[Rfam]
RNA: L2-Alphaproteobacteria ribosomal protein leader
Organism: Poseidonocella pacifica
RNA sequence: GGGGACCUUCGGGGCCCUAUACCAAGAGGGCCCUCCGAGGCCCCACACAUAGCGGGAAACAACUCCCGCACUGCUAAACGGAAGACAGAAA
Numbered sequence: 001g002g003g004g005a006c007c008u009u010c011g012g013g014g015c016c017c018u019a020u021a022c023c024a025a026g027a028g029g030g031c032c033c034u035c036c037g038a039g040g041c042c043c044c045a046c047a048c049a050u051a052g053c054g055g056g057a058a059a060c061a062a063c064u065c066c067c068g069c070a071c072u073g074c075u076a077a078a079c080g081g082a083a084g085a086c087a088g089a090a091a
Stems, first nucleotide, its partner, number of pairs: 001018004006014003028067003